[Rfam]
RNA sequence: CGAGUAAAUCAGAUGAUCGCAUGAAUUACAUGAGGAAAGUCCGAGCUCCAUAGGGCAAGAGUGCUGGGUAAUACCCAGUGGAGGUAACUCUAAGGAUAGUGCAACAGAAAUAAACCGCCUGCAUGACAGGUAAGGAUGGAAAGGUGAGGUAAGAGCUCACCAGAGGCUAGGUGACUAGUCUGCUCUGUAAACCCCACUCGGAGCAAGACCAAGUAGGGAUGAAAAAGCUACUGCUCGUAGUAUCCCGUAGGUAGGUCGCUUGAGUCUACUGGUAACAGUAGAUCUAGAAAGAUGAUCGUCAGAUACAGAACUCGGCUUAUAGAUUUAGUCGUAUA
Numbered sequence: 001c002g003a004g005u006a007a008a009u010c011a012g013a014u015g016a017u018c019g020c021a022u023g024a025a026u027u028a029c030a031u032g033a034g035g036a037a038a039g040u041c042c043g044a045g046c047u048c049c050a051u052a053g054g055g056c057a058a059g060a061g062u063g064c065u066g067g068g069u070a071a072u073a074c075c076c077a078g079u080g081g082a083g084g085u086a087a088c089u090c091u092a093a094g095g096a097u098a099g100u101g102c103a104a105c106a107g108a109a110a111u112a113a114a115c116c117g118c119c120u121g122c123a124u125g126a127c128a129g130g131u132a133a134g135g136a137u138g139g140a141a142a143g144g145u146g147a148g149g150u151a152a153g154a155g156c157u158c159a160c161c162a163g164a165g166g167c168u169a170g171g172u173g174a175c176u177a178g179u180c181u182g183c184u185c186u187g188u189a190a191a192c193c194c195c196a197c198u199c200g201g202a203g204c205a206a207g208a209c210c211a212a213g214u215a216g217g218g219a220u221g222a223a224a225a226a227g228c229u230a231c232u233g234c235u236c237g238u239a240g241u242a243u244c245c246c247g248u249a250g251g252u253a254g255g256u257c258g259c260u261u262g263a264g265u266c267u268a269c270u271g272g273u274a275a276c277a278g279u280a281g282a283u284c285u286a287g288a289a290a291g292a293u294g295a296u297c298g299u300c301a302g303a304u305a306c307a308g309a310a311c312u313c314g315g316c317u318u319a320u321a322g323a324u325u326u327a328g329u330c331g332u333a334u335a
Base pairs, nucleotide, nucleotide: 001331002330003329005327006326007325008324009323010322011320012300013299014298015297016296017295018294020032021031022030023029037318038317039316041315042314043313044312045311046203047202048201049200054236055235059199060198061197062196063195064078065077066076067075068074079093080091081090082089083088094194095193099192100191101188102187103186115135116134117131118130119129120128121127143161144160145159146158147157148156163183164181165180166179167178168177169176170175207257208256209255210254217248221244222243227241228240229239230238231237264283265282266281267280268279269278270277271276
The family of this 335-nucleotide RNA from Senegalia massiliensis is "Bacterial RNase P class A". The family's RNA type in Rfam is ribozyme. The base pairs follow the family's consensus structure, which is taken from published work. The literature on the family includes a 1999 paper in Nucleic Acids Res by Brown, "The Ribonuclease P Database". The source organism's lineage runs through Bacteria, Bacillota, Clostridia, Eubacteriales and Senegalia.